RNA: Actinobacteria sRNA Ms_IGR-5
Organism: Gordonia rhizosphera
RNA sequence: ACACGAGGAAGGAGGUGGUUCGAAGUUGUAUGACUGUUGGACACGUGAGGUGACCAUCCGCUAGACGCGGAUCGUGUGGCAUUCACCCGCACCGUUCGUGCCGGCGAAUUCCAGAUGGUCACCCGGCCCCCGCACCCCGAUCAUGUCCGGUCGGCAACGGCCCCCGAUGGGGCGGUGCGGGGGCCGUUUCCU
Numbered sequence: 001a002c003a004c005g006a007g008g009a010a011g012g013a014g015g016u017g018g019u020u021c022g023a024a025g026u027u028g029u030a031u032g033a034c035u036g037u038u039g040g041a042c043a044c045g046u047g048a049g050g051u052g053a054c055c056a057u058c059c060g061c062u063a064g065a066c067g068c069g070g071a072u073c074g075u076g077u078g079g080c081a082u083u084c085a086c087c088c089g090c091a092c093c094g095u096u097c098g099u100g101c102c103g104g105c106g107a108a109u110u111c112c113a114g115a116u117g118g119u120c121a122c123c124c125g126g127c128c129c130c131c132g133c134a135c136c137c138c139g140a141u142c143a144u145g146u147c148c149g150g151u152c153g154g155c156a157a158c159g160g161c162c163c164c165c166g167a168u169g170g171g172g173c174g175g176u177g178c179g180g181g182g183g184c185c186g187u188u189u190c191c192u
Stems, first nucleotide, its partner, number of pairs: 014058006059106004064101001067099004072094001074092001124186013137154006